[Rfam]
RNA: S4-Clostridia ribosomal protein leader
Organism: Lachnotalea glycerini
RNA sequence: GAAAGACUGCGAUCUAUCUAAUCACAGUUGGAUACGCUUUAGUAUCUCAAUUAGG
Numbered sequence: 001g002a003a004a005g006a007c008u009g010c011g012a013u014c015u016a017u018c019u020a021a022u023c024a025c026a027g028u029u030g031g032a033u034a035c036g037c038u039u040u041a042g043u044a045u046c047u048c049a050a051u052u053a054g055g
Stems, first nucleotide, its partner, number of pairs: 005029005011023002030047006